[Rfam]
RNA sequence: GUUUGACACGGCCCCACGGUGGCCAGUUUGGCCGCCUCGUUCGGUCGUGGCGCGAUGAC
Numbered sequence: 001g002u003u004u005g006a007c008a009c010g011g012c013c014c015c016a017c018g019g020u021g022g023c024c025a026g027u028u029u030g031g032c033c034g035c036c037u038c039g040u041u042c043g044g045u046c047g048u049g050g051c052g053c054g055a056u057g058a059c
Base pairs, nucleotide, nucleotide: 007049008048009047010046011045012044013043016041018035021033022032023031024030025029
Selenocysteine insertion sequence 3: a 59-nucleotide RNA sequence from a Nitriliruptorales bacterium. On this family, see Huttenhofer et al., RNA 1996: "Solution structure of mRNA hairpins promoting selenocysteine incorporation in Escherichia coli and their base-specific interaction with special elongation factor SELB". A search with the family's covariance model found it, with a score of 72 bits. The source organism's lineage runs through Bacteria, Bacillati, Actinomycetota, Nitriliruptoria and Nitriliruptorales. Its family is annotated with selenocysteine incorporation in the Gene Ontology. The base pairs follow the family's consensus structure, which was predicted with CMfinder.